[Rfam]
RNA sequence: CACCACUGGCAAUGGGCAAAGAGAUACCUUGGUGGUGGUGGUGUUCUUGUAUCAGUCAGGGGCAGAGCAGAUGGCAGUCCUCUGUUUAUCCUAGUUUGAUGCCUGCCUUGAUGGCCAAAACUGACUUAUGCCUAGGACUCAAUC
Dot-bracket structure: ..((.(((....(((...(((.(.((((........)))).)...)))...)))..))).)).....................((((..........(.(...((..(((.(.......).)))..)).).)..))))......